Notes:
RtT RNA: a 125-nucleotide sequence from Pantoea ananatis. From the family's description: This family represents a bacterial cis-regulatory element known as RtT RNA. The exact function of RtT is unknown although it is thought that it may be involved in changing the cellular response in relation to amino acid starvation. The base pairs follow the family's consensus structure, which is taken from published work. The family's RNA type in Rfam is cis-regulatory element. It scores 52 bits against the family's covariance model. Rfam links the family to the GO term cellular response to amino acid starvation. The literature on the family includes a 1991 paper in Nucleic Acids Res by Bosl and Kersten, "A novel RNA product of the tyrT operon of Escherichia coli".
RNA sequence: ACAUAUUCUCCGCCGAGGGGGAUGAGAAGCCCCGACCGGGGUUCGACAAAACGGCCCGCCGUUUUGCAUGGCCGUCAGGCCACCCGCAGGGCGAGCGCAGCGAGUGAAUCCCCCUCUCACCGCCA
Number, nucleotide and partner (000 for none) at each position: 001a000002c000003a000004u000005a000006u000007u000008c000009u000010c000011c000012g000013c000014c000015g116016a115017g114018g113019g112020g111021g110022a000023u108024g000025a000026g000027a000028a000029g000030c000031c000032c000033c093034g092035a000036c091037c090038g000039g000040g000041g000042u088043u000044c086045g085046a000047c000048a000049a063050a062051a000052c000053g000054g000055c000056c000057c000058g000059c000060c000061g000062u050063u049064u000065u000066g000067c000068a000069u000070g081071g080072c079073c078074g000075u000076c000077a000078g073079g072080c071081c070082a000083c000084c000085c045086g044087c000088a042089g000090g037091g036092c034093g033094a000095g000096c000097g000098c000099a000100g000101c000102g000103a000104g000105u000106g000107a000108a023109u000110c021111c020112c019113c018114c017115u016116c015117u000118c000119a000120c000121c000122g000123c000124c000125a000